[Rfam]
RNA sequence: GUUGAGGGGAAUGUUGUCUGGCUCGACUUCAUCACAAAGAUGCCGUCGGACCAGGCUUCAUUCCCCCCAAU
Number, nucleotide and partner (000 for none) at each position: 001g071002u070003u069004g068005a000006g066007g065008g064009g063010a062011a061012u060013g059014u000015u000016g056017u055018c054019u053020g052021g051022c000023u000024c048025g047026a046027c000028u000029u000030c000031a000032u000033c000034a000035c000036a000037a000038a000039g000040a000041u000042g000043c000044c000045g000046u026047c025048g024049g000050a000051c021052c020053a019054g018055g017056c016057u000058u000059c013060a012061u011062u010063c009064c008065c007066c006067c000068c004069a003070a002071u001
mir-166 microRNA precursor family: a 71-nucleotide RNA from Taxus chinensis.
On this family, see Reinhart et al., Genes Dev 2002: "MicroRNAs in plants".
The family has 31 seed sequences and 2,599 matches in Rfam 15.1.
Gene Ontology terms of the family: miRNA-mediated post-transcriptional gene silencing and RISC complex.